[Rfam]
RNA sequence: AUAAUGAUACUCCUGCCCAGCCACAGCCCUUCUUCUAAGAAGGAUCACGCAAUGGGGGCAGCCCGGCGAGACCCGCGGGGAGGUAAAACGGCCUGUGA
Numbered sequence: 001a002u003a004a005u006g007a008u009a010c011u012c013c014u015g016c017c018c019a020g021c022c023a024c025a026g027c028c029c030u031u032c033u034u035c036u037a038a039g040a041a042g043g044a045u046c047a048c049g050c051a052a053u054g055g056g057g058g059c060a061g062c063c064c065g066g067c068g069a070g071a072c073c074c075g076c077g078g079g080g081a082g083g084u085a086a087a088a089c090g091g092c093c094u095g096u097g098a
Base pairs, nucleotide, nucleotide: 012095013061014060015059016058017057018056062080063079064078066076067075068074081094082093083092
This 98-nucleotide RNA belongs to the Rfam family "pemK RNA". The sequence is in the family's curated seed alignment.